[Rfam]
The family of this 120-nucleotide RNA from Citrobacter sp. JGM124 is "Histidine operon leader". On this family, see Kolter and Yanofsky, Annu Rev Genet 1982: "Attenuation in amino acid biosynthetic operons". It is annotated as a cis-regulatory leader. The source organism's lineage runs through Bacteria, Pseudomonadati, Gammaproteobacteria, Enterobacterales and Citrobacter. Pairs were carried over by alignment from the consensus structure, which is taken from published work. Rfam links the family to the GO term histidine biosynthetic process. Rfam's curators write: At least 6 amino acid operons are known to be regulated by attenuation.
RNA sequence: CCAUCAUCACCAUCACCCUGACUAGUCUUUCAGGCGAUUGGUGCUGGGAGACGAAAUGUUCUUCCAGUGGUGCCAGAACGCACAGAGCCCCCGGAAGAAUACUUCCGGGGGUUUUUUUUU
Numbered sequence: 001c002c003a004u005c006a007u008c009a010c011c012a013u014c015a016c017c018c019u020g021a022c023u024a025g026u027c028u029u030u031c032a033g034g035c036g037a038u039u040g041g042u043g044c045u046g047g048g049a050g051a052c053g054a055a056a057u058g059u060u061c062u063u064c065c066a067g068u069g070g071u072g073c074c075a076g077a078a079c080g081c082a083c084a085g086a087g088c089c090c091c092c093g094g095a096a097g098a099a100u101a102c103u104u105c106c107g108g109g110g111g112u113u114u115u116u117u118u119u120u
Stems, first nucleotide, its partner, number of pairs: 008043003012038003017034005044067008082117001084115014